[Rfam]
Notes
Shown here is a 94-nucleotide RNA sequence from Stieleria maiorica, a member of the family "c-di-GMP-I riboswitch aptamer". A search with the family's covariance model found it, with a score of 60 bits.

RNA sequence: CCCUCGAAACGGCAAACCGCGUGUGAACGUGGGACGCAAAGCCAUGGGUCCGAAACGCAUUUUCCGAAUGCGAUCGGAUCGCCAGGCCACCGAA
Numbered sequence: 001c002c003c004u005c006g007a008a009a010c011g012g013c014a015a016a017c018c019g020c021g022u023g024u025g026a027a028c029g030u031g032g033g034a035c036g037c038a039a040a041g042c043c044a045u046g047g048g049u050c051c052g053a054a055a056c057g058c059a060u061u062u063u064c065c066g067a068a069u070g071c072g073a074u075c076g077g078a079u080c081g082c083c084a085g086g087c088c089a090c091c092g093a094a
Stems, first nucleotide, its partner, number of pairs: 012037002017032006041087003045084003048079003056072006